Annotation
Group II catalytic intron D1-D4-2: a 120-nucleotide sequence from Terrimonas sp. Gene Ontology term of the family: Group II intron splicing.

[Rfam]
RNA sequence: GAUGGAAGCCCCAUCGGUGUCGGCUUUCAAGAGCAGGCAUCAAACCGCUUCCCGAUGCCUGGAUGGCAACAAACAGGUGUUAAACGGUAGGAAGAAAAGGCUAUCAAUAAAUAGUCAGGU
Numbered sequence: 001g002a003u004g005g006a007a008g009c010c011c012c013a014u015c016g017g018u019g020u021c022g023g024c025u026u027u028c029a030a031g032a033g034c035a036g037g038c039a040u041c042a043a044a045c046c047g048c049u050u051c052c053c054g055a056u057g058c059c060u061g062g063a064u065g066g067c068a069a070c071a072a073a074c075a076g077g078u079g080u081u082a083a084a085c086g087g088u089a090g091g092a093a094g095a096a097a098a099g100g101c102u103a104u105c106a107a108u109a110a111a112u113a114g115u116c117a118g119g120u
Stems, first nucleotide, its partner, number of pairs: 001015005016041006023034004046119001048094005053087001054081002057078003061074001064071001099116006